[Rfam]
RNA sequence: GGUGGAAAUUUCCAAAGGGAUCGCAUUGAUCUGAUGUUCAUCGAUGCCCAAAUGAGUCCGCAGCUGCUUUGGUUUCGUUCAUUUAGCUCAAUCAUUGGAUCAUGCGAUCCCUUAGGAAGUUUCCAU
Numbered sequence: 001g002g003u004g005g006a007a008a009u010u011u012c013c014a015a016a017g018g019g020a021u022c023g024c025a026u027u028g029a030u031c032u033g034a035u036g037u038u039c040a041u042c043g044a045u046g047c048c049c050a051a052a053u054g055a056g057u058c059c060g061c062a063g064c065u066g067c068u069u070u071g072g073u074u075u076c077g078u079u080c081a082u083u084u085a086g087c088u089c090a091a092u093c094a095u096u097g098g099a100u101c102a103u104g105c106g107a108u109c110c111c112u113u114a115g116g117a118a119g120u121u122u123c124c125a126u
Stems, first nucleotide, its partner, number of pairs: 002126005008120006015113007023105004028101005036093001
About this RNA
The family of this 126-nucleotide sequence from Carya illinoinensis is "mir-393 microRNA precursor family". Its family is annotated with miRNA-mediated post-transcriptional gene silencing and RISC complex in the Gene Ontology. The source organism's lineage runs through Eukaryota, fabids, Fagales, Juglandaceae and Carya.